The family of this 126-nucleotide RNA sequence from Gillisella ampelina is "Alphaproteobacterial ar14".
NCBI's taxonomy places the organism under Bacteria, Pseudomonadati, Hyphomicrobiales, Gillisella, Gillisella ampelina.
Rfam links the family to the GO term biological process involved in symbiotic interaction.
It is one of the family's seed sequences.
Smr14C2 was renamed NfeR1 (Nodule Formation Efficiency RNA) highly expressed in salt stress and during the symbiotic interaction on legume roots.
RNA sequence: CGAAUUCAGACGGCCUACUCCUCCUCCCAGGGCACGUCUGUCGGAACUGCGGCACUCCUCCUCCCAGCCGUUGUUCGGUUCUUUUCGGAAAGCCUGCCGCACCUCCUCCCGCGGCAGGCUUUUUCG
Numbered sequence: 001c002g003a004a005u006u007c008a009g010a011c012g013g014c015c016u017a018c019u020c021c022u023c024c025u026c027c028c029a030g031g032g033c034a035c036g037u038c039u040g041u042c043g044g045a046a047c048u049g050c051g052g053c054a055c056u057c058c059u060c061c062u063c064c065c066a067g068c069c070g071u072u073g074u075u076c077g078g079u080u081c082u083u084u085u086c087g088g089a090a091a092g093c094c095u096g097c098c099g100c101a102c103c104u105c106c107u108c109c110c111g112c113g114g115c116a117g118g119c120u121u122u123u124u125c126g
Stems, first nucleotide, its partner, number of pairs: 007040003011036002013033004044076004049071005090121011